Source information: The record is a 65-nucleotide RNA sequence, which matches "S15-Flavobacteria ribosomal protein leader" in Rfam.
RNA sequence: UAAAUUUGCACCCGUAUUGAGAUAAACUCAAUCUACAUAAUAAUCAUUUAAAUAAUAUUAGCAUG
Numbered sequence: 001u002a003a004a005u006u007u008g009c010a011c012c013c014g015u016a017u018u019g020a021g022a023u024a025a026a027c028u029c030a031a032u033c034u035a036c037a038u039a040a041u042a043a044u045c046a047u048u049u050a051a052a053u054a055a056u057a058u059u060a061g062c063a064u065g
Base pairs, nucleotide, nucleotide: 016032017031018030019029020028
Rfam classes the family as a cis-regulatory leader.
The family is grouped with related families in Rfam's "Ribosomal Protein S15 Leader clan".